The family of this 102-nucleotide RNA from Nannospalax galili is "mir-3473 microRNA precursor family".
Rfam 15.1 lists 1,094 matches to the family in 20 species.
The source organism's lineage runs through Eukaryota, Tetrapoda, Amniota, Muroidea and Nannospalax.
RNA sequence: ACCGCUGAGCCAUCUCUCCAGCCCCAAUUUUAUGAAAUUCUUAAAUAUUCAAUAAAAAUAUUUUUAAAAAUGUAGUUGGGGCUGGAGAGAUGGCUCAGCGGU
Numbered sequence: 001a002c003c004g005c006u007g008a009g010c011c012a013u014c015u016c017u018c019c020a021g022c023c024c025c026a027a028u029u030u031u032a033u034g035a036a037a038u039u040c041u042u043a044a045a046u047a048u049u050c051a052a053u054a055a056a057a058a059u060a061u062u063u064u065u066a067a068a069a070a071u072g073u074a075g076u077u078g079g080g081g082c083u084g085g086a087g088a089g090a091u092g093g094c095u096c097a098g099c100g101g102u
Stems, first nucleotide, its partner, number of pairs: 002101028